[Rfam]
RNA sequence: AGUCAUCCAUCGACGCAACUCACACACGCACGGCAGGAGCGGGGGACCCAGGUAAGUCGCCGGACCGGACGCCUUGAUGGCGCACCGAACCGGCUAGGGGUGAAGUCGCACCGUCGCACGGCGGCGCGGCCGGGCAUCUCCCGCCCGAACCCGACAGCUCACCUCGCAGGCGACGGAGAGGAACA
Numbered sequence: 001a002g003u004c005a006u007c008c009a010u011c012g013a014c015g016c017a018a019c020u021c022a023c024a025c026a027c028g029c030a031c032g033g034c035a036g037g038a039g040c041g042g043g044g045g046a047c048c049c050a051g052g053u054a055a056g057u058c059g060c061c062g063g064a065c066c067g068g069a070c071g072c073c074u075u076g077a078u079g080g081c082g083c084a085c086c087g088a089a090c091c092g093g094c095u096a097g098g099g100g101u102g103a104a105g106u107c108g109c110a111c112c113g114u115c116g117c118a119c120g121g122c123g124g125c126g127c128g129g130c131c132g133g134g135c136a137u138c139u140c141c142c143g144c145c146c147g148a149a150c151c152c153g154a155c156a157g158c159u160c161a162c163c164u165c166g167c168a169g170g171c172g173a174c175g176g177a178g179a180g181g182a183a184c185a
Base pairs, nucleotide, nucleotide: 003038004037039167040166041165042164043163044162049097098152099151100150106129107128108127109126132146133145134144135143